The record is a 182-nucleotide RNA from Drosophila pseudoobscura, which matches "R2 RNA element" in Rfam. Pairs were carried over by alignment from the consensus structure, which is taken from published work. Lineage of the source: Eukaryota > Metazoa > Panarthropoda > Dicondylia > Drosophila pseudoobscura. This family represents the 3' UTR region of the R2 retrotransposable element. This family is known to interact with the R2-encoded reverse transcriptase in a reaction known as target primed reverse transcription (TPRT).

[Rfam]
RNA sequence: ACUUAGGCGGUGUACUACAAUCAUGAGCGUGUAAAUAGGUCAAUCGCAAUAUACAUGUAAAAACUACGAGGCUCAUUUCUCACCAAGUACGUAUGCGUGAUUACUUCGUAAUCAUGAAUCGUGCAUGCUAGUGGGGUUUGGCCUCCACUAGUAUCUUUGAAGAUUUUCCUUCCUCAGCGAUC
Numbered sequence: 001a002c003u004u005a006g007g008c009g010g011u012g013u014a015c016u017a018c019a020a021u022c023a024u025g026a027g028c029g030u031g032u033a034a035a036u037a038g039g040u041c042a043a044u045c046g047c048a049a050u051a052u053a054c055a056u057g058u059a060a061a062a063a064c065u066a067c068g069a070g071g072c073u074c075a076u077u078u079c080u081c082a083c084c085a086a087g088u089a090c091g092u093a094u095g096c097g098u099g100a101u102u103a104c105u106u107c108g109u110a111a112u113c114a115u116g117a118a119u120c121g122u123g124c125a126u127g128c129u130a131g132u133g134g135g136g137u138u139u140g141g142c143c144u145c146c147a148c149u150a151g152u153a154u155c156u157u158u159g160a161a162g163a164u165u166u167u168c169c170u171u172c173c174u175c176a177g178c179g180a181u182c
Base pairs, nucleotide, nucleotide: 001036043181044180045179046178047177068175069174070173071172075167087124088123089122090121091120096116097115098114099113100112101111102110103109104108126153127152128151129150130149131148